[Rfam]
RNA: serC leader
RNA sequence: UCGCGGGCUAGCCUUCCCCACCGAAGGCCGGUCCAUCUGCAAGGAUGGAGCAC
Numbered sequence: 001u002c003g004c005g006g007g008c009u010a011g012c013c014u015u016c017c018c019c020a021c022c023g024a025a026g027g028c029c030g031g032u033c034c035a036u037c038u039g040c041a042a043g044g045a046u047g048g049a050g051c052a053c
Stems, first nucleotide, its partner, number of pairs: 011028006033048006